Shown here is a 103-nucleotide RNA sequence from Cerasibacillus terrae, a member of the family "SAM riboswitch aptamer (S box leader)".
NCBI's taxonomy places the organism under Bacteria, Bacillati, Bacilli, Bacillaceae, Cerasibacillus.
Pairs were carried over by alignment from the consensus structure, which is taken from published work.
Gene Ontology term of the family: regulation of gene expression.
Rfam describes the family as follows. The SAM riboswitch is found upstream of a number of genes which code for proteins involved in methionine or cysteine biosynthesis in Gram-positive bacteria.

Nucleotides: 103
Base pairs, nucleotide, nucleotide: 001103004100005099006098007097008096013043014042015041016040017039021032022031023030026076027075028074029073044068045067046066047065049064050063051061053059054058072095077092078091079090080089081088082087
Number, partner (000 for none) and nucleotide at each position: 001103u002000a003000g004100u005099u006098a007097u008096u009000g010000a011000g012000a013043g014042u015041g016040a017039c018000u019000a020000a021032g022031a023030g024000a025000c026076u027075u028074g029073g030023c031022u032021c033000g034000a035000u036000g037000a038000c039017g040016u041015c042014a043013c044068a045067g046066c047065a048000a049064c050063c051061u052000a053059c054058u055000a056000a057000g058054a059053g060000a061051a062000a063050g064049g065047u066046g067045c068044u069000a070000c071000a072095a073029c074028c075027a076026a077092c078091a079090a080089a081088g082087c083000g084000g085000c086000u087082g088081c089080u090079u091078u092077g093000a094000g095072u096008g097007a098006u099005a100004a101000a102000a103001a